This 512-nucleotide RNA from Nonomuraea soli belongs to the Rfam family "Saccharopolyspora sRNA 350".
[Rfam]
RNA sequence: GUCGCGGUGAACGACCAGGCCGCCUCCUCUCCGGUGAGCACCUCGUCGCCCAGGUGGUCGCCGUCGGCCAGCACGCCGAGCUGCGUCUGGUUUCCGUAGGCUCCCUCGCCGAUCUUGUUCACCUUGCCAUGGGCCAGCAGCAGCACCUCCGUGACGGGGGCGCCCGCCUCGGCGAUGACCUGGCCGGGCUCGUACUCACGCUGGACGAACCGUUCGGCCAGCUCGUUGAGCACCUCGGGAUCGUCGAAGCCGCGCAGCGGGGCCAGCUCGCACAGCUCGGCGGGGAUGACGCGGAUCGUCGCGCCGGUGUUGGUGAAGGUCACCCGGCCGUCACCCAGCGCGUAGGACAGGCGGCGGUUGACCCGGUAGGCGCCGCCGACGACCUGUACCCAGGGCAGGACCUUGAGCAGAUGGCGGGAGGUGAUCUCCUGCAUCUGCGGGGCUGUCUUCGUGGUCGUGGCGAGGUUCCUCGCCGCAGCGGUACCGAGGCUGAGCUGGCUCUGGCCGUUCUC
Dot-bracket structure: .....((((..((..(.((.....((.((.....(.((((((..(.(((....((..(((.((.((((......(..(....(((........).))...).)....)))).....(((..((..((..(.(.((((..(.((......((.(.(.((..(...(((....)))..)......)).).).))..)))...)))).)..)..))..))..))).)).)))..)).((....(((((....(..((.(((.(.(......).)...)))))..)..)))))....)).....))).))))))).).)).))....)).).(((........))).........((((((....((.....))..)))))).))..)...)))(((((.(..((.((..(.......).))..))..).))))).....((((.(..(.((((((.......))))))..)..).))))((.(((.(.(((..........))).))))...)).

For this family Rfam cites "Prediction and characterization of small non-coding RNAs related to secondary metabolites in Saccharopolyspora erythraea" (Liu et al., PLoS One, 2013).